RNA sequence: CAAUGCCAUUUGGUAUCUGAUAUCCAGUCGUUUUUGUGAUUGUGUGUCUCGAAAUAUGGCUUAACAAGGGGGAACGGAUCUUGCGACACUGGUCACUCGUCUAUGAGCUUCCAGUUACUAUAUGCCCGUUUACAUUU
Number, nucleotide and partner (000 for none) at each position: 001c000002a000003a000004u000005g060006c059007c058008a057009u056010u000011u000012g000013g000014u000015a000016u000017c000018u000019g048020a047021u046022a045023u044024c000025c042026a041027g040028u039029c038030g037031u000032u000033u000034u000035u000036g000037u030038g029039a028040u027041u026042g025043u000044g023045u022046g021047u020048c019049u000050c000051g000052a000053a000054a000055u000056a009057u008058g007059g006060c005061u000062u000063a000064a000065c000066a000067a000068g000069g000070g000071g000072g000073a130074a129075c128076g127077g126078a000079u000080c000081u000082u000083g000084c000085g000086a000087c000088a115089c114090u113091g112092g111093u000094c000095a000096c107097u106098c000099g000100u000101c000102u000103a000104u000105g000106a097107g096108c000109u000110u000111c092112c091113a090114g089115u088116u000117a000118c000119u000120a000121u000122a000123u000124g000125c000126c077127c076128g075129u074130u073131u000132a000133c000134a000135u000136u000137u000

The family of this 137-nucleotide RNA sequence from Digitaria exilis is "Small nucleolar RNA F1/F2/snoR5a". Rfam describes the family as follows. This family contains F1, F2 and snoR5a sequences, all of which are members of the the H/ACA class of snoRNA that guide the sites of modification of uridines to pseudouridines. NCBI's taxonomy places the organism under Eukaryota, Poales, Poaceae, Panicoideae, Digitaria. The family's consensus secondary structure was predicted with PFOLD. It is annotated as an H/ACA-box small nucleolar RNA.